[Rfam]
RNA sequence: CUGGUUCCGGUUCACGCCGUCCGCAGGGCGCGGAGGCGACCCGGCGACU
Numbered sequence: 001c002u003g004g005u006u007c008c009g010g011u012u013c014a015c016g017c018c019g020u021c022c023g024c025a026g027g028g029c030g031c032g033g034a035g036g037c038g039a040c041c042c043g044g045c046g047a048c049u
Base pairs, nucleotide, nucleotide: 003049004048005047007044008043009042010041015038016037017036018035020034021033022032023031
The record is a 49-nucleotide sequence from Nocardioides luti, which matches "L31-Actinobacteria ribosomal protein leader" in Rfam. It is annotated as a cis-regulatory leader. A search with the family's covariance model found it, with a score of 47 bits.